[Rfam]
RNA sequence: CCCUGUCCAAUGCCCUUUUAACAUUGCACUGCUUUUUGUGUGUGGCCACCAGUAGUACAACAUAAAAAGGGCUCUGGGCAAGCU
Numbered sequence: 001c002c003c004u005g006u007c008c009a010a011u012g013c014c015c016u017u018u019u020a021a022c023a024u025u026g027c028a029c030u031g032c033u034u035u036u037u038g039u040g041u042g043u044g045g046c047c048a049c050c051a052g053u054a055g056u057a058c059a060a061c062a063u064a065a066a067a068a069g070g071g072c073u074c075u076g077g078g079c080a081a082g083c084u
Base pairs, nucleotide, nucleotide: 003082005079006078007077008076009075012072013071014070015069016068017067018066019065024060025059026058028056029055030054
The record is an 84-nucleotide RNA from Hymenochirus boettgeri, which matches "mir-130 microRNA precursor family" in Rfam. Rfam 15.1 lists 2,580 matches to the family in 658 species.